[Rfam]
RNA sequence: CCCAGGGCGUUGCCUGGGCUGAUAUGUUACGCCCUUUCAGGGCU
Numbered sequence: 001c002c003c004a005g006g007g008c009g010u011u012g013c014c015u016g017g018g019c020u021g022a023u024a025u026g027u028u029a030c031g032c033c034c035u036u037u038c039a040g041g042g043c044u
Stems, first nucleotide, its partner, number of pairs: 001018006031043005

This 44-nucleotide RNA sequence from Candidatus Magnetoglobus multicellularis belongs to the Rfam family "Acido-Lenti-1 RNA".